[Rfam]
RNA sequence: UCCACGUCUGAGUUGGACAGGGGAUCUAGACAGUUCGCAACAUACUUCUGCCAGAUCUAACUUUCCAGCUCACGCGUGGA
Number, nucleotide and partner (000 for none) at each position: 001u080002c079003c078004a077005c076006g075007u074008c000009u072010g071011a070012g069013u068014u067015g066016g065017a064018c000019a062020g061021g000022g058023g057024a056025u055026c054027u053028a000029g051030a000031c050032a049033g048034u000035u000036c000037g000038c000039a000040a000041c000042a000043u000044a000045c000046u000047u000048c033049u032050g031051c029052c000053a027054g026055a025056u024057c023058u022059a000060a000061c020062u019063u000064u017065c016066c015067a014068g013069c012070u011071c010072a009073c000074g007075c006076g005077u004078g003079g002080a001
RNA: mir-750 microRNA precursor family
Organism: Plutella xylostella